[Rfam]
RNA sequence: CAUGCCGGCAGUUGUGGGGAGUAGUCGUCCUUCGUCCCGCGAAGGAAGCUGUGUCAACAUCAUCGGCCCGCAGGCCGUGGUACAGCUGGUGGAUCACUUGACGAGACCAUGAACCAGGGGCGGCCGCAUGGGCCGGAGUCGCCCAUGGCUCAUCGGUUAACCAUCCGGCCCACGUACU
Numbered sequence: 001c002a003u004g005c006c007g008g009c010a011g012u013u014g015u016g017g018g019g020a021g022u023a024g025u026c027g028u029c030c031u032u033c034g035u036c037c038c039g040c041g042a043a044g045g046a047a048g049c050u051g052u053g054u055c056a057a058c059a060u061c062a063u064c065g066g067c068c069c070g071c072a073g074g075c076c077g078u079g080g081u082a083c084a085g086c087u088g089g090u091g092g093a094u095c096a097c098u099u100g101a102c103g104a105g106a107c108c109a110u111g112a113a114c115c116a117g118g119g120g121c122g123g124c125c126g127c128a129u130g131g132g133c134c135g136g137a138g139u140c141g142c143c144c145a146u147g148g149c150u151c152a153u154c155g156g157u158u159a160a161c162c163a164u165c166c167g168g169c170c171c172a173c174g175u176a177c178u
Stems, first nucleotide, its partner, number of pairs: 029045003047087010064077005088178003091173001
Shown here is a 178-nucleotide RNA from Rugamonas brunnea, a member of the family "Manganese Mn2+ riboswitch aptamer (yybP-ykoY)". From the family's description: This RNA was originally discovered in E. coli during a large scale screen and was named SraF. The family was later found to exist upstream of related families of protein genes in many bacteria, including the the yybP and ykoK genes in B. subtilis. The specific functions of these proteins are unknown, but this structured RNA element may be involved in their genetic regulation as a riboswitch. The family has 29 seed sequences and 1,126 matches in Rfam 15.1.